[Rfam]
Description: A member of the RNA family "L19-Flavobacteria ribosomal protein leader", 28 nucleotides long. Pairs were carried over by alignment from the consensus structure, which is taken from published work. On this family, see Eckert and Weinberg, BMC Microbiol 2020: "Discovery of 20 novel ribosomal leader candidates in bacteria and archaea".
RNA sequence: UAACCUCUGACGAUACCCGUGAAUGUUG
Numbered sequence: 001u002a003a004c005c006u007c008u009g010a011c012g013a014u015a016c017c018c019g020u021g022a023a024u025g026u027u028g
Stems, first nucleotide, its partner, number of pairs: 001028004008023001010020003